[Rfam]
RNA sequence: CCUGUCCCUAGAGGCAUUGCAGGUGUGGCUACUGUGUCGCAUGUGUGUCAGUAGGUGGUAGAGAGGGAAAGGCCAUGUCUACACUCAGUGUCCUGACCUGGGAACAUCUGAAUGAGCAGUAGCCUAACACU
Numbered sequence: 001c002c003u004g005u006c007c008c009u010a011g012a013g014g015c016a017u018u019g020c021a022g023g024u025g026u027g028g029c030u031a032c033u034g035u036g037u038c039g040c041a042u043g044u045g046u047g048u049c050a051g052u053a054g055g056u057g058g059u060a061g062a063g064a065g066g067g068a069a070a071g072g073c074c075a076u077g078u079c080u081a082c083a084c085u086c087a088g089u090g091u092c093c094u095g096a097c098c099u100g101g102g103a104a105c106a107u108c109u110g111a112a113u114g115a116g117c118a119g120u121a122g123c124c125u126a127a128c129a130c131u
Stems, first nucleotide, its partner, number of pairs: 002061005007055004013049003019046003024041006067128001070125004075120002082114002085111004089106003093102001